Rfam assigns this 50-nucleotide sequence from Vibrio sp. EJY3 to the family "malK-II RNA".
The sequence is in the family's curated seed alignment.
The organism belongs to Vibrio, within Bacteria.
RNA sequence: AUUCCUACUGUUACUGCUCGCUAGAUAAUUCAUAUAAUGAUGAGUGGUGA
Number, nucleotide and partner (000 for none) at each position: 001a000002u000003u000004c000005c000006u000007a000008c000009u000010g000011u050012u049013a048014c047015u046016g045017c044018u043019c000020g000021c000022u000023a000024g000025a000026u000027a000028a000029u000030u000031c000032a000033u000034a000035u000036a000037a000038u000039g000040a000041u000042g000043a018044g017045u016046g015047g014048u013049g012050a011